[Rfam]
RNA sequence: AAGCAGCACUCUGUGGCAUAUGAACAAAACUGUUGACAGAAUUUGAGCUUGCUAUAGCAAAAAAGUCUUAACCUAUAGUGUUCUCUUCCUCAUGAGAUAAGCCGGUAAAUAAACUCCAAACAAU
Numbered sequence: 001a002a003g004c005a006g007c008a009c010u011c012u013g014u015g016g017c018a019u020a021u022g023a024a025c026a027a028a029a030c031u032g033u034u035g036a037c038a039g040a041a042u043u044u045g046a047g048c049u050u051g052c053u054a055u056a057g058c059a060a061a062a063a064a065g066u067c068u069u070a071a072c073c074u075a076u077a078g079u080g081u082u083c084u085c086u087u088c089c090u091c092a093u094g095a096g097a098u099a100a101g102c103c104g105g106u107a108a109a110u111a112a113a114c115u116c117c118a119a120a121c122a123a124u
Base pairs, nucleotide, nucleotide: 009047010046011045012040014038015037017035018034020033021032022031064115065114066113068112069111070110074109076104078102079101084097085096086095087094
Small nucleolar RNA SNORA28: a 124-nucleotide RNA sequence from Rattus norvegicus. Clan: SNORA28 clan. About the family: ACA28 is a member of the H/ACA class of snoRNA that guide the sites of modification of uridines to pseudouridines. Rfam links the family to the GO terms RNA processing and nucleolus. For this family Rfam cites "RNomics: an experimental approach that identifies 201 candidates for novel, small, non-messenger RNAs in mouse" (Huttenhofer et al., EMBO J, 2001). NCBI's taxonomy places the organism under Eukaryota, Tetrapoda, Mammalia, Glires, Rattus.